[Rfam]
RNA sequence: UGAGCUGCACACCGCUGUCGUUGACAGCACCCAGGUAGCCAGGACCUUCAAGGCUACGCCCGUUUCGGGUGGUUCUCCCCCAAAGUGCGACUCGCGCUCGGCAGCUCGCACGGUCACCGUCCCAUCGGUGAUGAGCGC
Numbered sequence: 001u002g003a004g005c006u007g008c009a010c011a012c013c014g015c016u017g018u019c020g021u022u023g024a025c026a027g028c029a030c031c032c033a034g035g036u037a038g039c040c041a042g043g044a045c046c047u048u049c050a051a052g053g054c055u056a057c058g059c060c061c062g063u064u065u066c067g068g069g070u071g072g073u074u075c076u077c078c079c080c081c082a083a084a085g086u087g088c089g090a091c092u093c094g095c096g097c098u099c100g101g102c103a104g105c106u107c108g109c110a111c112g113g114u115c116a117c118c119g120u121c122c123c124a125u126c127g128g129u130g131a132u133g134a135g136c137g138c
Stems, first nucleotide, its partner, number of pairs: 014028006035057006043075002046072001058070005107137002113132007
About this RNA:
This 138-nucleotide RNA from Pseudomonas putida belongs to the Rfam family "radC RNA". The family's consensus secondary structure is taken from published work. Taxonomically the source falls in Pseudomonas putida (Bacteria, Pseudomonadati, Pseudomonadaceae, Pseudomonas). It is one of the family's seed sequences.